[Rfam]
RNA sequence: GAGUACAUUGAAACAGUGAAGUACAAACUGGCCGUUGCUAUGGUAAUCCUGUUUAGUACGAGAGGAACCGCAGGUUCAGACAUUUGGUAUAUGUGCCUGGUCGAAAGACCAAUGGUGCGAAGCUACCAUCUGAGGGAUUAGGACUGAACGCCUCUAAGUCUGAAUCCCGUCCAGAUAUGCAACGGUAUAUUCAGUGCCUGACACGUGGCUAGGCAAGCCUACGUAUUCCUUCCGGUGCUUAGAUCAGGCUAUGUGCCUGGCUAGGUCCGGUAGGUCUGGUGUAAUGCCAGAGCGAUAUGACCAAAACUGUACUCUGGACUUCAGAGUAUGGAGGUCGACACGAUAUCCAAUUGUGGUAUGAGCGUGAAGGCAAUAAAUCGUUCGUAGACGACUUAAUGUUUUGUCGGGGAGACGUAAGUGUAAGAGCAGCUAUCACACUGCGAGACACUGAGUCCUAUCCCUGCUUGACGUAAUGAUUUGA
Numbered sequence: 001g002a003g004u005a006c007a008u009u010g011a012a013a014c015a016g017u018g019a020a021g022u023a024c025a026a027a028c029u030g031g032c033c034g035u036u037g038c039u040a041u042g043g044u045a046a047u048c049c050u051g052u053u054u055a056g057u058a059c060g061a062g063a064g065g066a067a068c069c070g071c072a073g074g075u076u077c078a079g080a081c082a083u084u085u086g087g088u089a090u091a092u093g094u095g096c097c098u099g100g101u102c103g104a105a106a107g108a109c110c111a112a113u114g115g116u117g118c119g120a121a122g123c124u125a126c127c128a129u130c131u132g133a134g135g136g137a138u139u140a141g142g143a144c145u146g147a148a149c150g151c152c153u154c155u156a157a158g159u160c161u162g163a164a165u166c167c168c169g170u171c172c173a174g175a176u177a178u179g180c181a182a183c184g185g186u187a188u189a190u191u192c193a194g195u196g197c198c199u200g201a202c203a204c205g206u207g208g209c210u211a212g213g214c215a216a217g218c219c220u221a222c223g224u225a226u227u228c229c230u231u232c233c234g235g236u237g238c239u240u241a242g243a244u245c246a247g248g249c250u251a252u253g254u255g256c257c258u259g260g261c262u263a264g265g266u267c268c269g270g271u272a273g274g275u276c277u278g279g280u281g282u283a284a285u286g287c288c289a290g291a292g293c294g295a296u297a298u299g300a301c302c303a304a305a306a307c308u309g310u311a312c313u314c315u316g317g318a319c320u321u322c323a324g325a326g327u328a329u330g331g332a333g334g335u336c337g338a339c340a341c342g343a344u345a346u347c348c349a350a351u352u353g354u355g356g357u358a359u360g361a362g363c364g365u366g367a368a369g370g371c372a373a374u375a376a377a378u379c380g381u382u383c384g385u386a387g388a389c390g391a392c393u394u395a396a397u398g399u400u401u402u403g404u405c406g407g408g409g410a411g412a413c414g415u416a417a418g419u420g421u422a423a424g425a426g427c428a429g430c431u432a433u434c435a436c437a438c439u440g441c442g443a444g445a446c447a448c449u450g451a452g453u454c455c456u457a458u459c460c461c462u463g464c465u466u467g468a469c470g471u472a473a474u475g476a477u478u479u480g481a
Stems, first nucleotide, its partner, number of pairs: 031186008041173003046076001048074005077132004085125003092119005098111005134168003141161005196371004375479005381395001384392001402470005407461003411454002418448004426441004
RNA: Eukaryotic large subunit ribosomal RNA, nucleotides 6955 to 7435
Organism: Fasciolopsis buskii